[Rfam]
RNA: narK RNA
Nucleotides: 072
Stems, first nucleotide, its partner, number of pairs: 030049002033046004
Number, partner (000 for none) and nucleotide at each position: 001000g002000g003000c004000c005000c006000g007000g008000c009000c010000c011000u012000u013000g014000c015000u016000g017000u018000g019000g020000c021000a022000c023000c024000u025000g026000c027000g028000g029000u030049g031048g032000c033046g034045a035044u036043c037000a038000a039000c040000g041000g042000c043036g044035a045034u046033c047000c048031c049030c050000c051000a052000u053000u054000c055000a056000c057000a058000c059000g060000a061000c062000a063000a064000a065000g066000g067000c068000g069000u070000c071000g072000c